[Rfam]
RNA sequence: UAUUAAAAACGUAAUUUUUUUCGUAUAUACUUAGGAAUAUGGCCUGAGCGUUUCUACCGAGCUACCGUAAAUAGCUUGACUACGAAGAGUGUACAUAAUUUU
Numbered sequence: 001u002a003u004u005a006a007a008a009a010c011g012u013a014a015u016u017u018u019u020u021u022c023g024u025a026u027a028u029a030c031u032u033a034g035g036a037a038u039a040u041g042g043c044c045u046g047a048g049c050g051u052u053u054c055u056a057c058c059g060a061g062c063u064a065c066c067g068u069a070a071a072u073a074g075c076u077u078g079a080c081u082a083c084g085a086a087g088a089g090u091g092u093a094c095a096u097a098a099u100u101u102u
Stems, first nucleotide, its partner, number of pairs: 018088008030048006058078007

The record is a 102-nucleotide RNA sequence from Anaerobacillus alkalidiazotrophicus, which matches "Purine riboswitch aptamer" in Rfam. On this family, see Mandal et al., Cell 2003: "Riboswitches Control Fundamental Biochemical Pathways in Bacillus subtilis and Other Bacteria". The family's consensus secondary structure is taken from published work. A search with the family's covariance model found it, with a score of 92 bits.